[Rfam]
RNA sequence: AGCUUUGCACAGUGGCAGUGACCAUAGGCAUUGAGGUUUGUGCAAGACAAGAUUAUUGUUAAGUGAAAACUUUUCCCAAUGCCCUCCUAUGAUGACUUGAAAUGUAGUCAACAUUGGCAAAUUUGAUAGUCUCUACAGAGA
Dot-bracket structure: ....................(.(.(.(.(.....(.......)..).)).).)................................((.(((.(((((........))))).))).))............((((....))))
The record is a 141-nucleotide RNA from Erinaceus europaeus, which matches "U4 spliceosomal RNA" in Rfam. About the family: U4 small nuclear RNA (U4 snRNA) is a component of the major U2-dependent spliceosome. The source organism's lineage runs through Eukaryota, Eumetazoa, Gnathostomata, Tetrapoda and Erinaceus. It is annotated as a spliceosomal small nuclear RNA. Rfam links the family to the GO terms spliceosomal tri-snRNP complex assembly and U4 snRNP. The base pairs follow the family's consensus structure, which is taken from published work. The match comes from Rfam's covariance-model search (60 bits). The family is grouped with related families in Rfam's "U4 clan".